Description:
The family of this 98-nucleotide sequence from Gossypium hirsutum is "MIR398 microRNA precursor family". Pairs were carried over by alignment from the consensus structure, which was predicted with WAR. On this family, see Jones-Rhoades and Bartel, Mol Cell 2004: "Computational identification of plant microRNAs and their targets, including a stress-induced miRNA". Its family is annotated with RISC complex and miRNA-mediated post-transcriptional gene silencing in the Gene Ontology. It scores 63 bits against the family's covariance model. NCBI's taxonomy places the organism under Eukaryota, Pentapetalae, malvids, Malvaceae, Gossypium.

[Rfam]
RNA sequence: AGGAAUCCGACCGGGUCGACCUUAGAAUACAUGUGAUUGUUUUUCGAUUUCAAUAUGGUUCGUUUCAUGUGUUCUCAGGUCGCCCCUGUCGGGUUUCC
Number, nucleotide and partner (000 for none) at each position: 001a000002g000003g000004a000005a000006u000007c092008c091009g000010a000011c088012c000013g086014g085015g000016u000017c082018g081019a080020c000021c000022u000023u000024a075025g074026a073027a072028u071029a070030c069031a068032u067033g000034u000035g000036a000037u000038u000039g000040u000041u000042u000043u000044u000045c000046g000047a000048u000049u000050u000051c000052a000053a000054u000055a000056u000057g000058g000059u000060u000061c000062g000063u000064u000065u000066c000067a032068u031069g030070u029071g028072u027073u026074c025075u024076c000077a000078g000079g000080u019081c018082g017083c000084c000085c014086c013087u000088g011089u000090c000091g008092g007093g000094u000095u000096u000097c000098c000